c-di-GMP-I riboswitch aptamer: an 88-nucleotide sequence from Thermanaerosceptrum fracticalcis. The match comes from Rfam's covariance-model search (81 bits). Pairs were carried over by alignment from the consensus structure, which is taken from published work. The organism belongs to Thermanaerosceptrum, within Bacteria.
RNA sequence: AACCGAUAAAGGUAAACCUAUCGAAAGGUAGGGGCACAAAGCCAAGGACCUAAGGCUUUAUAUAGAGCUAUGGUAGCCGGUUGCCGAA
Number, nucleotide and partner (000 for none) at each position: 001a000002a000003c000004c000005g000006a000007u000008a000009a000010a000011g000012g037013u036014a000015a000016a000017c032018c031019u030020a029021u028022c027023g000024a000025a000026a000027g022028g021029u020030a019031g018032g017033g000034g000035c000036a013037c012038a000039a000040a082041g081042c080043c079044a000045a000046g078047g077048a074049c073050c072051u000052a000053a000054g000055g068056c067057u066058u065059u000060a000061u000062a000063u000064a000065g058066a057067g056068c055069u000070a000071u000072g050073g049074u048075a000076g000077c047078c046079g043080g042081u041082u040083g000084c000085c000086g000087a000088a000